[Rfam]
RNA sequence: CCUGCUGUAUUACCAGCAGUUUUUCAUUCCGGCAUGCAUUACCAGUAAUGGUUUUGUGUGAAGCCCGGAUGACAAUGAAGCCCUUGGCUUUAUGCCAGGAGAGAGAGCCGUGAGGGGACCUCAACUCUGGGAGCAUCAAUCCAGAUGGGAGC
Numbered sequence: 001c002c003u004g005c006u007g008u009a010u011u012a013c014c015a016g017c018a019g020u021u022u023u024u025c026a027u028u029c030c031g032g033c034a035u036g037c038a039u040u041a042c043c044a045g046u047a048a049u050g051g052u053u054u055u056g057u058g059u060g061a062a063g064c065c066c067g068g069a070u071g072a073c074a075a076u077g078a079a080g081c082c083c084u085u086g087g088c089u090u091u092a093u094g095c096c097a098g099g100a101g102a103g104a105g106a107g108c109c110g111u112g113a114g115g116g117g118a119c120c121u122c123a124a125c126u127c128u129g130g131g132a133g134c135a136u137c138a139a140u141c142c143a144g145a146u147g148g149g150a151g152c
Base pairs, nucleotide, nucleotide: 002019003018004017005016006015007014028069029068030067031066032065033060034059035058036057037056038055041052042051043050044049083099084098085097086096087095101122102121103120108115109114126145127144128143129142130141131140
A member of the RNA family "Group II catalytic intron D1-D4-7" from Desulfotignum phosphitoxidans, 152 nucleotides long. A reference for the family is Bonen and Vogel (2001), "The ins and outs of group II introns", Trends Genet. Gene Ontology term of the family: Group II intron splicing. The family has 244 seed sequences and 1,296 matches in Rfam 15.1. The base pairs follow the family's consensus structure. Group II introns are found in rRNA, tRNA and mRNA of organelles in fungi, plants and protists, and also in mRNA in bacteria. NCBI's taxonomy places the organism under Bacteria, Thermodesulfobacteriota, Desulfobacteria, Desulfobacteraceae, Desulfotignum phosphitoxidans.